RNA sequence: GCGACUUUGGCGCAGUAGGUAGCGCGUAGGUCUCAUAAUCCUAAGGUCGCGAGUUCGAUCCUCGCAGGUCGCA
Numbered sequence: 001g002c003g004a005c006u007u008u009g010g011c012g013c014a015g016u017a018g019g020u021a022g023c024g025c026g027u028a029g030g031u032c033u034c035a036u037a038a039u040c041c042u043a044a045g046g047u048c049g050c051g052a053g054u055u056c057g058a059u060c061c062u063c064g065c066a067g068g069u070c071g072c073a
Stems, first nucleotide, its partner, number of pairs: 001072007010025004027043004049065005
RNA: tRNA
Organism: Perkinsus marinus